RNA sequence: AUUAUAUGGUAGGAACAGGCGGCCUAGAUUUUGGCGCGGCCGGGCAGUAAGCAGCAGGUAAAGAUAAAUCUGCGGGACCUUA
Numbered sequence: 001a002u003u004a005u006a007u008g009g010u011a012g013g014a015a016c017a018g019g020c021g022g023c024c025u026a027g028a029u030u031u032u033g034g035c036g037c038g039g040c041c042g043g044g045c046a047g048u049a050a051g052c053a054g055c056a057g058g059u060a061a062a063g064a065u066a067a068a069u070c071u072g073c074g075g076g077a078c079c080u081u082a
Stems, first nucleotide, its partner, number of pairs: 011080003016076001018041003022035003026031001044052002054073006
A member of the RNA family "NiCo (Nickel/Cobalt) riboswitch aptamer" from Pelosinus sp. UFO1, 82 nucleotides long. Lineage of the source: Bacteria > Bacillota > Negativicutes > Sporomusaceae > Pelosinus. Rfam links the family to the GO terms cobalt ion binding and metal ion homeostasis. The base pairs follow the family's consensus structure, which is taken from published work.